The family of this 100-nucleotide RNA from Pseudothauera nasutitermitis is "TPP riboswitch aptamer (THI element)". The match comes from Rfam's covariance-model search (68 bits).
[Rfam]
RNA sequence: CGCUACCGUUGGGGGUGCCCGCCGUCGCGCGGCGGGCUGAGAGAGUCCCUUGGAACCUGAUCCGGGUCACACCGGCGUAGGGAAACGAGUCCAUGUCCGC
Numbered sequence: 001c002g003c004u005a006c007c008g009u010u011g012g013g014g015g016u017g018c019c020c021g022c023c024g025u026c027g028c029g030c031g032g033c034g035g036g037c038u039g040a041g042a043g044a045g046u047c048c049c050u051u052g053g054a055a056c057c058u059g060a061u062c063c064g065g066g067u068c069a070c071a072c073c074g075g076c077g078u079a080g081g082g083a084a085a086c087g088a089g090u091c092c093a094u095g096u097c098c099g100c
Stems, first nucleotide, its partner, number of pairs: 007087004011050004016044001017037008056081004062075004
Background:
From the family's description: Vitamin B(1) in its active form thiamin pyrophosphate (TPP) is an essential coenzyme that is synthesised by coupling of pyrimidine and thiazole moieties in bacteria. The previously detected thiamin-regulatory element, thi box was extended, resulting in a new, highly conserved RNA secondary structure, the THI element, which is widely distributed in eubacteria and also occurs in some archaea. Analysis of operon structures identified a large number of new candidate thiamin-regulated genes, mostly transporters, in various prokaryotic organisms. The THI element is a riboswitch that directly binds to TPP to regulate gene expression through a variety of mechanisms in archaea, bacteria and eukaryotes. through a variety of mechanisms in archaea, bacteria and eukaryotes.